[Rfam]
Nucleotides: 086
Base pairs, nucleotide, nucleotide: 012037013036017032018031019030020029021028022027040080041079042078043077045076046075047074048071049070050069055065056064057063058062
Number, partner (000 for none) and nucleotide at each position: 001000c002000g003000g004000u005000a006000u007000u008000u009000c010000c011000c012037g013036c014000a015000a016000a017032c018031c019030a020029u021028g022027c023000g024000a025000a026000a027022g028021c029020a030019u031018g032017g033000g034000a035000c036013g037012c038000a039000a040080a041079g042078c043077c044000u045076c046075c047074g048071g049070c050069c051000u052000a053000c054000a055065g056064c057063g058062c059000a060000c061000a062058g063057c064056g065055c066000c067000a068000c069050g070049g071048u072000a073000g074047c075046g076045g077043g078042g079041c080040u081000g082000c083000c084000a085000a086000c